[Rfam]
Rfam assigns this 88-nucleotide RNA sequence from Allolucifera butyrica to the family "c-di-GMP-I riboswitch aptamer". Taxonomically the source falls in Allolucifera (Bacteria, Bacillati, Bacillota, Negativicutes). Its family is annotated with cyclic-di-GMP binding in the Gene Ontology. It scores 78 bits against the family's covariance model.
RNA sequence: CAAAUAGGGAGGCAAACCCAUCGAAAGGUGGGGACGCAAAGCCGUGGGUCUAAAGGGUUUUUAAACCUAAGAUUGCCAGGUUGCAAAU
Numbered sequence: 001c002a003a004a005u006a007g008g009g010a011g012g013c014a015a016a017c018c019c020a021u022c023g024a025a026a027g028g029u030g031g032g033g034a035c036g037c038a039a040a041g042c043c044g045u046g047g048g049u050c051u052a053a054a055g056g057g058u059u060u061u062u063a064a065a066c067c068u069a070a071g072a073u074u075g076c077c078a079g080g081u082u083g084c085a086a087a088u
Stems, first nucleotide, its partner, number of pairs: 012037002017032006040082004045078003048073003055067002058064001